[Rfam]
RNA sequence: UUUCAUAGAGGUAGACAAGGUUCUCUACACGCUUAGUAAUAACUAAGUCACCAGAGAUGAGGGAUAUGCCGACCCUCCUAUGAUA
Numbered sequence: 001u002u003u004c005a006u007a008g009a010g011g012u013a014g015a016c017a018a019g020g021u022u023c024u025c026u027a028c029a030c031g032c033u034u035a036g037u038a039a040u041a042a043c044u045a046a047g048u049c050a051c052c053a054g055a056g057a058u059g060a061g062g063g064a065u066a067u068g069c070c071g072a073c074c075c076u077c078c079u080a081u082g083a084u085a
Stems, first nucleotide, its partner, number of pairs: 001085001003083006011028005019070003030054001031048007059077005
skipping-rope RNA: an 85-nucleotide RNA sequence from Bacillus thuringiensis. Taxonomically the source falls in Bacillus thuringiensis (Bacteria, Bacillati, Bacilli, Caryophanales). Rfam's curators put it in the seed alignment.